ZMP/ZTP riboswitch aptamer (pfl RNA motif): an 81-nucleotide RNA sequence from Paenibacillus hemerocallicola. Its family is annotated with regulation of purine nucleotide biosynthetic process and one-carbon metabolic process in the Gene Ontology. The family's consensus secondary structure is taken from published work.
[Rfam]
RNA sequence: AUGUUUAUGCGUGACUGGCGGAGCAUGGGGAACCAUGAGGGAGCGCAUAAAUGGUAACGGCCGUACGCCUGGGCAAAGGUA
Dot-bracket structure: ..((((((((((..(([[[[....((((....))))..))..)))))))))).......(((...]]]]..))).......